[Rfam]
RNA sequence: UGGACAUUUCUUUUUAUUCAGUUUCUUCUUGAGGUGAAGAUAACAUCUUAUGAAAGUCCUAGAGAAUACAGUAGCUUUCUGUUCACCCUUUGCAAGGUAUAAGGGUGUAUCGUUCUGACAUUU
Numbered sequence: 001u002g003g004a005c006a007u008u009u010c011u012u013u014u015u016a017u018u019c020a021g022u023u024u025c026u027u028c029u030u031g032a033g034g035u036g037a038a039g040a041u042a043a044c045a046u047c048u049u050a051u052g053a054a055a056g057u058c059c060u061a062g063a064g065a066a067u068a069c070a071g072u073a074g075c076u077u078u079c080u081g082u083u084c085a086c087c088c089u090u091u092g093c094a095a096g097g098u099a100u101a102a103g104g105g106u107g108u109a110u111c112g113u114u115c116u117g118a119c120a121u122u123u
Stems, first nucleotide, its partner, number of pairs: 002059004007054003011050001021044003024040005069117003088103003
The family of this 123-nucleotide RNA sequence from Octodon degus is "Small Cajal body specific RNA 24". Rfam's curators write: scaRNAs are a specific class of small nuclear RNAs which localise to the Cajal bodies and guide the modification of RNA polymerase II transcribed spliceosomal RNAs U1, U2, U4, U5 and U12. ACA12 belongs to the H/ACA box class of guide RNAs as it has the predicted hairpin-hinge-hairpin-tail structure,the conserved H/ACA-box motifs and is found associated with GAR1. Lineage of the source: Eukaryota > Vertebrata > Euteleostomi > Octodontidae > Octodon. Its family is annotated with RNA processing, Cajal body and nucleolus in the Gene Ontology. The family's consensus secondary structure was predicted with RNAfold.